Group II catalytic intron D1-D4-5: a 195-nucleotide sequence from [Eubacterium] nodatum. Group II introns are found in rRNA, tRNA and mRNA of organelles in fungi, plants and protists, and also in mRNA in bacteria. A search with the family's covariance model found it, with a score of 116 bits.
RNA sequence: CAUAACUGUUAUUGCGAAAGGUGGAAUGACAGGGUAACGCCUCGAAACGCCUUCCCAAAGAAACGCCGUGCAGGAAAGGAGAUAAUGUCUUGAAUGUAUGAAGUGCGUUAAGAUGUCCGGUAAUUGCCCUAACGAGUAAAGUCGAGGAAAACCGAACCAGAGGUGGUCGAGCAACAUAGGGCUAGGGUCUAGAAA
Number, nucleotide and partner (000 for none) at each position: 001c000002a000003u000004a000005a000006c000007u000008g000009u000010u000011a000012u000013u000014g000015c000016g000017a000018a053019a052020g051021g050022u049023g048024g000025a000026a000027u000028g000029a000030c000031a000032g042033g041034g040035u000036a000037a000038c000039g000040c034041c033042u032043c000044g000045a000046a000047a000048c023049g022050c021051c020052u019053u018054c187055c186056c185057a000058a000059a000060g000061a000062a000063a000064c107065g106066c105067c100068g099069u098070g097071c096072a095073g000074g000075a000076a091077a090078g089079g088080a000081g000082a000083u000084a000085a000086u000087g000088u079089c078090u077091u076092g000093a000094a000095u072096g071097u070098a069099u068100g067101a000102a000103g000104u000105g066106c065107g064108u000109u000110a000111a000112g000113a000114u000115g182116u181117c180118c179119g000120g000121u000122a000123a000124u174125u173126g172127c171128c147129c146130u145131a000132a000133c000134g143135a142136g000137u000138a000139a000140a000141g000142u135143c134144g000145a130146g129147g128148a000149a000150a000151a000152c000153c169154g168155a000156a167157c166158c165159a164160g000161a000162g000163g000164u159165g158166g157167u156168c154169g153170a000171g127172c126173a125174a124175c000176a000177u000178a000179g118180g117181g116182c115183u000184a000185g056186g055187g054188u000189c000190u000191a000192g000193a000194a000195a000